Description
Shown here is a 137-nucleotide RNA sequence from Erinaceus europaeus, a member of the family "Small nucleolar RNA SNORA48".

RNA sequence: ACCCCCUGGCAUUGGGCAAAGAGACACCUCACUGGUGGUGUUUUAUAUCAGUCAGGGGCAGAGCAGAUAGUCCUUUGUUCAUCCUAGCUUGAUGCCUGGAUCAGUGGCCAGAGCUGUUUCAUGCCUAGGGCACAUAA
Numbered sequence: 001a002c003c004c005c006c007u008g009g010c011a012u013u014g015g016g017c018a019a020a021g022a023g024a025c026a027c028c029u030c031a032c033u034g035g036u037g038g039u040g041u042u043u044u045a046u047a048u049c050a051g052u053c054a055g056g057g058g059c060a061g062a063g064c065a066g067a068u069a070g071u072c073c074u075u076u077g078u079u080c081a082u083c084c085u086a087g088c089u090u091g092a093u094g095c096c097u098g099g100a101u102c103a104g105u106g107g108c109c110a111g112a113g114c115u116g117u118u119u120c121a122u123g124c125c126u127a128g129g130g131c132a133c134a135u136a137a
Base pairs, nucleotide, nucleotide: 003058004057005056006055007054008053012051013050014049015048019044020043021042024041025040026039027038028037076132077131078130079129080128091125093123097121098120099119102116103115105113
Notes:
Its Rfam clan is "SNORA48 clan". The base pairs follow the family's consensus structure, which was predicted with RNAalifold. Rfam 15.1 lists 2,109 matches to the family in 150 species.